Shown here is a 78-nucleotide sequence from Triticum aestivum, a member of the family "small nucleolar RNA snoR117". NCBI's taxonomy places the organism under Eukaryota, Poales, Triticodae, Triticinae, Triticum. It scores 50 bits against the family's covariance model. It is annotated as a C/D-box small nucleolar RNA.

RNA sequence: GGCCUGUGAUGUGAACAAUUUGUCCGUACCAUCUGACAUCUCUGAUGAUCCACAUUUGCUAAAGUAUCUCUGAGGUCC
Numbered sequence: 001g002g003c004c005u006g007u008g009a010u011g012u013g014a015a016c017a018a019u020u021u022g023u024c025c026g027u028a029c030c031a032u033c034u035g036a037c038a039u040c041u042c043u044g045a046u047g048a049u050c051c052a053c054a055u056u057u058g059c060u061a062a063a064g065u066a067u068c069u070c071u072g073a074g075g076u077c078c
Base pairs, nucleotide, nucleotide: 001077002076003075004074